[Rfam]
RNA: mir-551 microRNA precursor family
RNA sequence: UGCCCUUGGAAACCAAGUGUGGGUGUGGCCUGAAAAAGAAAUAUGGCGACCCAUCCUUUGUUUCUGAGGUCC
Numbered sequence: 001u002g003c004c005c006u007u008g009g010a011a012a013c014c015a016a017g018u019g020u021g022g023g024u025g026u027g028g029c030c031u032g033a034a035a036a037a038g039a040a041a042u043a044u045g046g047c048g049a050c051c052c053a054u055c056c057u058u059u060g061u062u063u064c065u066g067a068g069g070u071c072c
Stems, first nucleotide, its partner, number of pairs: 002071001004069004009064005016057002021052004028047003